[Rfam]
RNA sequence: AUCAAAUUAGGGCAAACUUAUGGAAACGUAAGGACGCAAAACAUGAAGUCUAAGUAAUAAAAUAAAAUACACGUAUUUUAUUAUAUUGACGGUUCGGUUGCAAUG
Numbered sequence: 001a002u003c004a005a006a007u008u009a010g011g012g013c014a015a016a017c018u019u020a021u022g023g024a025a026a027c028g029u030a031a032g033g034a035c036g037c038a039a040a041a042c043a044u045g046a047a048g049u050c051u052a053a054g055u056a057a058u059a060a061a062a063u064a065a066a067a068u069a070c071a072c073g074u075a076u077u078u079u080a081u082u083a084u085a086u087u088g089a090c091g092g093u094u095c096g097g098u099u100g101c102a103a104u105g
Stems, first nucleotide, its partner, number of pairs: 012037002017032006040099003045095003048090003055083010
RNA: c-di-GMP-I riboswitch aptamer
Organism: Acetivibrio ethanolgignens